[Rfam]
RNA sequence: GCUGUUGUAGGGUAGGAGGGAGAGAGGUGUUACCUUCUGCCACCUCUCCCAUCCCCUCCUCUCCAGGAGC
Number, nucleotide and partner (000 for none) at each position: 001g070002c069003u068004g000005u066006u065007g064008u000009a062010g061011g059012g058013u000014a000015g054016g053017a052018g000019g050020g049021a000022g048023a047024g046025a045026g044027g043028u042029g041030u000031u039032a038033c000034c000035u000036u000037c000038u032039g031040c000041c029042a028043c027044c026045u025046c024047u023048c022049c020050c019051a000052u017053c016054c015055c000056c000057u000058c012059c011060u000061c010062u009063c000064c007065a006066g005067g000068a003069g002070c001
RNA: mir-1759 microRNA precursor family
Organism: Lanius ludovicianus